[Rfam]
RNA sequence: UGAUAGUAUGGUAGAAAGAUGAAUCUUUCUACCAUACUAUCUAUUAGAUUAGUUUUUUGUAGGGUAGAAAGUUG
Numbered sequence: 001u002g003a004u005a006g007u008a009u010g011g012u013a014g015a016a017a018g019a020u021g022a023a024u025c026u027u028u029c030u031a032c033c034a035u036a037c038u039a040u041c042u043a044u045u046a047g048a049u050u051a052g053u054u055u056u057u058u059g060u061a062g063g064g065u066a067g068a069a070a071g072u073u074g
Base pairs, nucleotide, nucleotide: 002041003040004039005038006037007036008035009034010033011032012031013030014029015028016027017026018025019024
Shown here is a 74-nucleotide RNA from Tetragonia tetragonoides, a member of the family "Plastid-psbM 3UTR RNA". Rfam's curators put it in the seed alignment. Rfam describes the family as follows. Plastid psbM is a non-coding RNA (ncRNA) recognised in plastids. It was found in the three prime untranslated region (3UTR) of psbM gene, its 3UTR location suggests a role in transcript maturation. The family's RNA type in Rfam is cis-regulatory element. The source organism's lineage runs through Eukaryota, Streptophytina, Magnoliopsida, Aizoaceae and Tetragonia.